[Rfam]
RNA sequence: UAUUCAGAACUGGGGAGCUGAUUAAAUCAGCUGAGAGUGAGGUGUUGUCCUCUUACUCAUUGAACCUGUAAGGUUAGUACCUACGUAGGGAGUUUCUUGAUUUUAUGU
Number, nucleotide and partner (000 for none) at each position: 001u000002a000003u000004u000005c000006a000007g095008a094009a093010c092011u059012g058013g057014g056015g000016a053017g031018c030019u029020g028021a027022u000023u000024a000025a000026a000027u021028c020029a019030g018031c017032u000033g000034a000035g000036a000037g000038u000039g052040a051041g050042g049043u000044g000045u000046u000047g000048u000049c042050c041051u040052c039053u016054u000055a000056c014057u013058c012059a011060u000061u000062g000063a000064a000065c089066c088067u087068g086069u000070a000071a082072g081073g080074u000075u000076a000077g000078u000079a000080c073081c072082u071083a000084c000085g000086u068087a067088g066089g065090g000091a000092g010093u009094u008095u007096c000097u000098u000099g000100a000101u000102u000103u000104u000105a000106u000107g000108u000